[Rfam]
RNA: transfer-messenger RNA
RNA sequence: GGGGCCGACAAGGUUUCGACGUUGGUUUUGAAUCCUGUGGUGCAUGUCGAGAAGGUUACGGUUCUCGUAAAUCCAUCGUGACAACUAAGUAAUCGCAAACGACGAUUCUUACGCACUGGCAGCCUAAUACCCUGCCUACGGUCAAGCGACCCAGCCUGUGGGGAAGCGCGACCGGCUAAGCUACACAGGCUCGCAUUGAGGCUCGUCCCGGGCUGAUUUGCUAAAUCCUUAGGGAAUCGGCGCUGACAUCCUGCCCUUCGGGCCGUAAGCGCUUAAAUCAAUAGAACGGGCUAAACAUGUAGAUCUGCAGGUGGAUUGCUGACGGACGCGGGUUCGAUUCCCGCCGGCUCCACCA
Numbered sequence: 001g002g003g004g005c006c007g008a009c010a011a012g013g014u015u016u017c018g019a020c021g022u023u024g025g026u027u028u029u030g031a032a033u034c035c036u037g038u039g040g041u042g043c044a045u046g047u048c049g050a051g052a053a054g055g056u057u058a059c060g061g062u063u064c065u066c067g068u069a070a071a072u073c074c075a076u077c078g079u080g081a082c083a084a085c086u087a088a089g090u091a092a093u094c095g096c097a098a099a100c101g102a103c104g105a106u107u108c109u110u111a112c113g114c115a116c117u118g119g120c121a122g123c124c125u126a127a128u129a130c131c132c133u134g135c136c137u138a139c140g141g142u143c144a145a146g147c148g149a150c151c152c153a154g155c156c157u158g159u160g161g162g163g164a165a166g167c168g169c170g171a172c173c174g175g176c177u178a179a180g181c182u183a184c185a186c187a188g189g190c191u192c193g194c195a196u197u198g199a200g201g202c203u204c205g206u207c208c209c210g211g212g213c214u215g216a217u218u219u220g221c222u223a224a225a226u227c228c229u230u231a232g233g234g235a236a237u238c239g240g241c242g243c244u245g246a247c248a249u250c251c252u253g254c255c256c257u258u259c260g261g262g263c264c265g266u267a268a269g270c271g272c273u274u275a276a277a278u279c280a281a282u283a284g285a286a287c288g289g290g291c292u293a294a295a296c297a298u299g300u301a302g303a304u305c306u307g308c309a310g311g312u313g314g315a316u317u318g319c320u321g322a323c324g325g326a327c328g329c330g331g332g333u334u335c336g337a338u339u340c341c342c343g344c345c346g347g348c349u350c351c352a353c354c355a
Stems, first nucleotide, its partner, number of pairs: 001351007020324007029315001034311002037308004043299005048067005055082007118136005139174005150163003154190007193221003205237002208234002239273006246266002249262003253291004257286003328344005